[Rfam]
RNA sequence: GAUCACAACUCUGGAGAAUCUCAGGAAAUGAGUGCCGAAGGUGCAACGCGUUAAACGCUGAAUCUCUCAGGCCAAAGGACAGAGUCAUAUGG
Numbered sequence: 001g002a003u004c005a006c007a008a009c010u011c012u013g014g015a016g017a018a019u020c021u022c023a024g025g026a027a028a029u030g031a032g033u034g035c036c037g038a039a040g041g042u043g044c045a046a047c048g049c050g051u052u053a054a055a056c057g058c059u060g061a062a063u064c065u066c067u068c069a070g071g072c073c074a075a076a077g078g079a080c081a082g083a084g085u086c087a088u089a090u091g092g
Base pairs, nucleotide, nucleotide: 008085009084010083011082012081013080020032021031022030023029034072035071036070037068038067041066043064048058
RNA: Glycine riboswitch aptamer